Description: Rfam assigns this 122-nucleotide RNA sequence from Geosporobacter ferrireducens to the family "Molybdenum/Tungsten riboswitch aptamer (Moco RNA motif)". The family's consensus secondary structure is taken from published work. Rfam links the family to the GO terms molybdenum ion binding, tungstate binding and regulation of gene expression.
RNA sequence: AAGGUGAAUAAUCUCCGAGCUUAUGCUCCUGUGGAUAUACAAAUCUAUGGAAAUUAAGCCGAUAGGGUGUAAAUGGAAACGUUUAUGCCUCCCAGGCGGAAAGGAGAAGGUGAUACAUAAAA
Numbered sequence: 001a002a003g004g005u006g007a008a009u010a011a012u013c014u015c016c017g018a019g020c021u022u023a024u025g026c027u028c029c030u031g032u033g034g035a036u037a038u039a040c041a042a043a044u045c046u047a048u049g050g051a052a053a054u055u056a057a058g059c060c061g062a063u064a065g066g067g068u069g070u071a072a073a074u075g076g077a078a079a080c081g082u083u084u085a086u087g088c089c090u091c092c093c094a095g096g097c098g099g100a101a102a103g104g105a106g107a108a109g110g111u112g113a114u115a116c117a118u119a120a121a122a
Base pairs, nucleotide, nucleotide: 003116012107013106014105015104016103019059020058021057022056023055027051028050029049033046034045035044036043065090066089067088068087069086070085071084072083073082074081075080091099092098